[Rfam]
RNA: TPP riboswitch aptamer (THI element)
RNA sequence: UGGACAUCGCGCGGGAGCUCGGGCCGACCGGGCUGAGAGGGCGACACGACGGCGUCGCCGACCGCAGGAACCUGUCCGGGUAAUGCCGGCGUAGGGAGCGUGCCGUGAAAUCAG
Numbered sequence: 001u002g003g004a005c006a007u008c009g010c011g012c013g014g015g016a017g018c019u020c021g022g023g024c025c026g027a028c029c030g031g032g033c034u035g036a037g038a039g040g041g042c043g044a045c046a047c048g049a050c051g052g053c054g055u056c057g058c059c060g061a062c063c064g065c066a067g068g069a070a071c072c073u074g075u076c077c078g079g080g081u082a083a084u085g086c087c088g089g090c091g092u093a094g095g096g097a098g099c100g101u102g103c104c105g106u107g108a109a110a111u112c113a114g
Stems, first nucleotide, its partner, number of pairs: 008100003011065004017033005040059005071095004076089004